[Rfam]
RNA sequence: UGGUAGACACACGACUGGCGCAGGUGGGACACCACCGGGGAGUGACAUCCGCAGCGCAUCGCCCGCCUGGGUGCGCUCA
Numbered sequence: 001u002g003g004u005a006g007a008c009a010c011a012c013g014a015c016u017g018g019c020g021c022a023g024g025u026g027g028g029a030c031a032c033c034a035c036c037g038g039g040g041a042g043u044g045a046c047a048u049c050c051g052c053a054g055c056g057c058a059u060c061g062c063c064c065g066c067c068u069g070g071g072u073g074c075g076c077u078c079a
Base pairs, nucleotide, nucleotide: 003048004047010044011043012042015039016038017067018066019065020064024035025034026033027032056074057073058072059071060070
Description: Rfam assigns this 79-nucleotide RNA from Rudaeicoccus suwonensis to the family "ZMP/ZTP riboswitch aptamer (pfl RNA motif)". The match comes from Rfam's covariance-model search (44 bits). For this family Rfam cites "Recognition of the bacterial alarmone ZMP through long-distance association of two RNA subdomains" (Jones and Ferre-D'Amare, Nat Struct Mol Biol, 2015).